[Rfam]
Notes:
The record is a 70-nucleotide RNA sequence from Ciona savignyi, which matches "mir-124 microRNA precursor family" in Rfam. Rfam links the family to the GO terms miRNA-mediated post-transcriptional gene silencing and RISC complex. Rfam 15.1 lists 2,215 matches to the family in 905 species. It is one of the family's seed sequences.
RNA sequence: CUUCAUCCGCGUUUGCUGCGGACCUUCUUGUGUGACAUCACAAUAAGGCACGCGGUGAAUGCCAAUGAAA
Numbered sequence: 001c002u003u004c005a006u007c008c009g010c011g012u013u014u015g016c017u018g019c020g021g022a023c024c025u026u027c028u029u030g031u032g033u034g035a036c037a038u039c040a041c042a043a044u045a046a047g048g049c050a051c052g053c054g055g056u057g058a059a060u061g062c063c064a065a066u067g068a069a070a
Stems, first nucleotide, its partner, number of pairs: 003068004009062008018053003023048004028043003